RNA sequence: GGGGGGAGCACCGGAUCUUGGGCUGUGUCCCCCAGCGCCCUGGGCUCCCGGGCCUGGGCUGCUGGAAUCACGCUCCUGGGGCCGCGCAGCCCCCU
Numbered sequence: 001g002g003g004g005g006g007a008g009c010a011c012c013g014g015a016u017c018u019u020g021g022g023c024u025g026u027g028u029c030c031c032c033c034a035g036c037g038c039c040c041u042g043g044g045c046u047c048c049c050g051g052g053c054c055u056g057g058g059c060u061g062c063u064g065g066a067a068u069c070a071c072g073c074u075c076c077u078g079g080g081g082c083c084g085c086g087c088a089g090c091c092c093c094c095u
Stems, first nucleotide, its partner, number of pairs: 001095006011086001012084003017079002020076003024072004028066002032064001033061004038056001042054001044053003

mir-8799 microRNA precursor family: a 95-nucleotide RNA sequence from Nyctereutes procyonoides. Lineage of the source: Eukaryota > Sarcopterygii > Eutheria > Laurasiatheria > Nyctereutes. Clan: mir-8791 microRNA precursor clan. Rfam links the family to the GO terms miRNA-mediated post-transcriptional gene silencing and RISC complex. The base pairs follow the family's consensus structure, which was predicted with RNAalifold. The family has 7 seed sequences and 20,638 matches in Rfam 15.1.